This 61-nucleotide sequence from Okeania sp. KiyG1 belongs to the Rfam family "Plastid-psbN 5UTR RNA". Rfam classes the family as a cis-regulatory element. Lineage of the source: Bacteria > Cyanophyceae > Oscillatoriophycideae > Microcoleaceae > Okeania. Rfam 15.1 lists 2,345 matches to the family in 397 species.
RNA sequence: AAAAACUGCCAUUAAUAGUGUAGUUCCCCAACCGGGAGAUACUUUACCAUAUUCAGAGUUU
Numbered sequence: 001a002a003a004a005a006c007u008g009c010c011a012u013u014a015a016u017a018g019u020g021u022a023g024u025u026c027c028c029c030a031a032c033c034g035g036g037a038g039a040u041a042c043u044u045u046a047c048c049a050u051a052u053u054c055a056g057a058g059u060u061u
Stems, first nucleotide, its partner, number of pairs: 017045002020042003024038004